RNA sequence: AUGCCUUAAACUAAAGAGCAAGGAAAAUAACAAACUGGGGUGAUGCCUGGUUUCUUGCCAAGUAUGAAAUUCAUUUUUGAAUGGGUACAGGUUUCCCCUUGGAGGAGCUGCCUACUUUGCAGGGUCUUCAGGUGACAAGAUCUACCCA
Numbered sequence: 001a002u003g004c005c006u007u008a009a010a011c012u013a014a015a016g017a018g019c020a021a022g023g024a025a026a027a028u029a030a031c032a033a034a035c036u037g038g039g040g041u042g043a044u045g046c047c048u049g050g051u052u053u054c055u056u057g058c059c060a061a062g063u064a065u066g067a068a069a070u071u072c073a074u075u076u077u078u079g080a081a082u083g084g085g086u087a088c089a090g091g092u093u094u095c096c097c098c099u100u101g102g103a104g105g106a107g108c109u110g111c112c113u114a115c116u117u118u119g120c121a122g123g124g125u126c127u128u129c130a131g132g133u134g135a136c137a138a139g140a141u142c143u144a145c146c147c148a
Stems, first nucleotide, its partner, number of pairs: 004023004032053008056068001058066001082148005089143006098132002101129005108122004
RNA: U12 minor spliceosomal RNA
Organism: Aquarana catesbeiana